[Rfam]
RNA sequence: CGGUUUCCUGCUUCGACAGUGCUUGAACGGGAACCC
Numbered sequence: 001c002g003g004u005u006u007c008c009u010g011c012u013u014c015g016a017c018a019g020u021g022c023u024u025g026a027a028c029g030g031g032a033a034c035c036c
Base pairs, nucleotide, nucleotide: 002035003034004033005032006031007030008029010028012027013026014025015024016023017021
Source information: Shown here is a 36-nucleotide sequence from Equus caballus, a member of the family "Iron response element I". It scores 42 bits against the family's covariance model. On this family, see Sammarco et al., J Biol Chem 2008: "Ferritin L and H subunits are differentially regulated on a post-transcriptional level". The family has 62 seed sequences and 6,829 matches in Rfam 15.1. Rfam classes the family as a cis-regulatory element.